The family of this 83-nucleotide RNA from Gallibacterium salpingitidis is "sRNA-Xcc1".
[Rfam]
RNA sequence: GAUCGACAGUGCGACUAAUACAAUACCGAAAGGGAAUACGUCCGCUAGAGUUAGACUAGUUUUGAGCUGUCGAUCACCCUAAC
Numbered sequence: 001g002a003u004c005g006a007c008a009g010u011g012c013g014a015c016u017a018a019u020a021c022a023a024u025a026c027c028g029a030a031a032g033g034g035a036a037u038a039c040g041u042c043c044g045c046u047a048g049a050g051u052u053a054g055a056c057u058a059g060u061u062u063u064g065a066g067c068u069g070u071c072g073a074u075c076a077c078c079c080u081a082a083c
Stems, first nucleotide, its partner, number of pairs: 001075009013042003016038002026033002044060005
A search with the family's covariance model found it, with a score of 61 bits. Pairs were carried over by alignment from the consensus structure, which was predicted with RNAalifold.